Overview
Rfam assigns this 125-nucleotide RNA from Treponema phagedenis to the family "TD-2 RNA". The match comes from Rfam's covariance-model search (59 bits).
[Rfam]
RNA sequence: ACGGGCACGGACGCCCGUGGUUCCAAGCAGAAACGAUGUUUUAAAGCAUCAACACAAAACUGUAAAAUUGAAGCUUUAAAACUCGUGGUUUAGUUUUUGCCACGGACGGCAAAAACUAAACCGGG
Numbered sequence: 001a002c003g004g005g006c007a008c009g010g011a012c013g014c015c016c017g018u019g020g021u022u023c024c025a026a027g028c029a030g031a032a033a034c035g036a037u038g039u040u041u042u043a044a045a046g047c048a049u050c051a052a053c054a055c056a057a058a059a060c061u062g063u064a065a066a067a068u069u070g071a072a073g074c075u076u077u078a079a080a081a082c083u084c085g086u087g088g089u090u091u092a093g094u095u096u097u098u099g100c101c102a103c104g105g106a107c108g109g110c111a112a113a114a115a116c117u118a119a120a121c122c123g124g125g
Stems, first nucleotide, its partner, number of pairs: 001018006034085003038082010088121014
The family has 36 seed sequences and 310 matches in Rfam 15.1.